[Rfam]
RNA sequence: CGGGGAAAGAAGACCCUGUUGAGCUUGACUCUAGUCCGACUUUGUGAAAUGACUUAAGGGGUGUAGAAUAAGUGGGAGCUUCGGCGCCGGUGAAAUACCACUACCUUUAACGUUAUUUUACUUAUUCCAUGGGUUGGAAGCGGGGCUACGCCCCUCUUUCUGGCUCCAAGACGCCCUUCGGGGACGUCGAUCCAGGUGGAAGACAUUGUCAGGUGGGGAGUUUGGCUGGGGCGGCACAUCUGUUAAAAGAUAACGCAGGUGUCCUAAGAUGAGCUCAACGAGAACAGAAAUCUCGUGUGGAACAAAAGGGUAAAAGCUCAUUUGAUUUUGAUUUUCAGUACGAAUACAAACUGUGAAAGCAUGGCCUAUCGAUCCUUUAGACCUGCGGGACUUGCAGCUAGAGGUGUCAGAAAAGUUACCACAGGGAUAACUGGCUUGUGGCAGCCAAGCGUUCAUAGCGACGUUGCUUUUUGAUCCUUCGAUGUCGGCUCUUCCUAUCAUUGAGUAGCAGCAUACUCCAAGCGUCGGAUUGUUCACCCGCUAAUAGGGAACGUGAGCUGGGUUUAGACCGUCGUGAGACAGGUUAGUUUUACCCUA
Numbered sequence: 001c002g003g004g005g006a007a008a009g010a011a012g013a014c015c016c017u018g019u020u021g022a023g024c025u026u027g028a029c030u031c032u033a034g035u036c037c038g039a040c041u042u043u044g045u046g047a048a049a050u051g052a053c054u055u056a057a058g059g060g061g062u063g064u065a066g067a068a069u070a071a072g073u074g075g076g077a078g079c080u081u082c083g084g085c086g087c088c089g090g091u092g093a094a095a096u097a098c099c100a101c102u103a104c105c106u107u108u109a110a111c112g113u114u115a116u117u118u119u120a121c122u123u124a125u126u127c128c129a130u131g132g133g134u135u136g137g138a139a140g141c142g143g144g145g146c147u148a149c150g151c152c153c154c155u156c157u158u159u160c161u162g163g164c165u166c167c168a169a170g171a172c173g174c175c176c177u178u179c180g181g182g183g184a185c186g187u188c189g190a191u192c193c194a195g196g197u198g199g200a201a202g203a204c205a206u207u208g209u210c211a212g213g214u215g216g217g218g219a220g221u222u223u224g225g226c227u228g229g230g231g232c233g234g235c236a237c238a239u240c241u242g243u244u245a246a247a248a249g250a251u252a253a254c255g256c257a258g259g260u261g262u263c264c265u266a267a268g269a270u271g272a273g274c275u276c277a278a279c280g281a282g283a284a285c286a287g288a289a290a291u292c293u294c295g296u297g298u299g300g301a302a303c304a305a306a307a308g309g310g311u312a313a314a315a316g317c318u319c320a321u322u323u324g325a326u327u328u329u330g331a332u333u334u335u336c337a338g339u340a341c342g343a344a345u346a347c348a349a350a351c352u353g354u355g356a357a358a359g360c361a362u363g364g365c366c367u368a369u370c371g372a373u374c375c376u377u378u379a380g381a382c383c384u385g386c387g388g389g390a391c392u393u394g395c396a397g398c399u400a401g402a403g404g405u406g407u408c409a410g411a412a413a414a415g416u417u418a419c420c421a422c423a424g425g426g427a428u429a430a431c432u433g434g435c436u437u438g439u440g441g442c443a444g445c446c447a448a449g450c451g452u453u454c455a456u457a458g459c460g461a462c463g464u465u466g467c468u469u470u471u472u473g474a475u476c477c478u479u480c481g482a483u484g485u486c487g488g489c490u491c492u493u494c495c496u497a498u499c500a501u502u503g504a505g506u507a508g509c510a511g512c513a514u515a516c517u518c519c520a521a522g523c524g525u526c527g528g529a530u531u532g533u534u535c536a537c538c539c540g541c542u543a544a545u546a547g548g549g550a551a552c553g554u555g556a557g558c559u560g561g562g563u564u565u566a567g568a569c570c571g572u573c574g575u576g577a578g579a580c581a582g583g584u585u586a587g588u589u590u591u592a593c594c595c596u597a
Stems, first nucleotide, its partner, number of pairs: 003596003007591002015425004020421002022417005028221004035213002038210003044121010054110007071102005078085002125201005135194004142154005170188004224237001225235003238260006263364002269321006275301002278296006302311002326350003331345004352361003375403006383397004434475001436473001438472001440468006449459002486561001487559004491553001492550005499524001503518005526540003530536001567585004571580003